Annotation:
Rfam assigns this 96-nucleotide sequence from Mariniblastus fucicola to the family "Selenocysteine transfer RNA". Its Rfam clan is "tRNA clan". Gene Ontology term of the family: triplet codon-amino acid adaptor activity. The match comes from Rfam's covariance-model search (70 bits).

[Rfam]
RNA sequence: GGAAGUGCUUGUUCGGCUGGUGCCGGCCGCGGUCUUCAAAACCGUAGGGCCGCAUGGAAAUCAUGUGGUCGGUGGGUUCGAUUCCCAUGCACUUCC
Numbered sequence: 001g002g003a004a005g006u007g008c009u010u011g012u013u014c015g016g017c018u019g020g021u022g023c024c025g026g027c028c029g030c031g032g033u034c035u036u037c038a039a040a041a042c043c044g045u046a047g048g049g050c051c052g053c054a055u056g057g058a059a060a061u062c063a064u065g066u067g068g069u070c071g072g073u074g075g076g077u078u079c080g081a082u083u084c085c086c087a088u089g090c091a092c093u094u095c096c
Stems, first nucleotide, its partner, number of pairs: 001096008013026005029045005048070007073087004